Purine riboswitch aptamer: a 102-nucleotide RNA from Jeotgalibacillus sp. S-D1. Taxonomically the source falls in Jeotgalibacillus (Bacteria, Bacillati, Bacilli, Caryophanales). It scores 89 bits against the family's covariance model.
Nucleotides: 102
Base pairs, nucleotide, nucleotide: 018088019087020086021085022084023083024082025081029049030048031047032046033045034044035043058078059077060076061075062074063073064072
Number, partner (000 for none) and nucleotide at each position: 001000u002000a003000a004000a005000u006000a007000c008000a009000c010000a011000a012000u013000a014000u015000a016000c017000c018088c019087c020086u021085u022084c023083a024082u025081a026000u027000a028000u029049g030048u031047u032046c033045g034044a035043a036000a037000a038000u039000a040000u041000g042000g043035u044034u045033c046032g047031a048030a049029u050000g051000u052000u053000u054000c055000u056000a057000c058078c059077a060076a061075a062074u063073c064072a065000c066000c067000g068000u069000a070000a071000a072064u073063g074062a075061u076060u077059u078058g079000a080000c081025u082024a083023u084022g085021g086020a087019g088018g089000u090000g091000g092000u093000c094000u095000u096000u097000u098000u099000c100000g101000g102000c